A member of the RNA family "Molybdenum/Tungsten riboswitch aptamer (Moco RNA motif)" from a Mycoplasmatota bacterium, 117 nucleotides long.

RNA sequence: AUAAUUUAAACAUUCCGAGCUGUAUUAUCUAAGGAGUACUAUGAAAUUACAGCCGAUGGGUUUAAUUAGAAAUGAUUAAGCCUCCCAUGUUUGGAAAGGAAGGGGAGAAUUCGGCUU
Numbered sequence: 001a002u003a004a005u006u007u008a009a010a011c012a013u014u015c016c017g018a019g020c021u022g023u024a025u026u027a028u029c030u031a032a033g034g035a036g037u038a039c040u041a042u043g044a045a046a047u048u049a050c051a052g053c054c055g056a057u058g059g060g061u062u063u064a065a066u067u068a069g070a071a072a073u074g075a076u077u078a079a080g081c082c083u084c085c086c087a088u089g090u091u092u093g094g095a096a097a098g099g100a101a102g103g104g105g106a107g108a109a110u111u112c113g114g115c116u117u
Base pairs, nucleotide, nucleotide: 003111004110006108011103013101014100015099016098019053020052021051022050023049024048026046028044029043033040034039058083059082060081061080062079063078064077065076066075067074068073084094085093
Dot-bracket structure: ..((.(....(.((((..((((((.(.((...((....))..)).).))))))....(((((((((((....)))))))))))((.......))...)))).)....).))......
NCBI's taxonomy places the organism under Bacteria, Bacillati, Mycoplasmatota.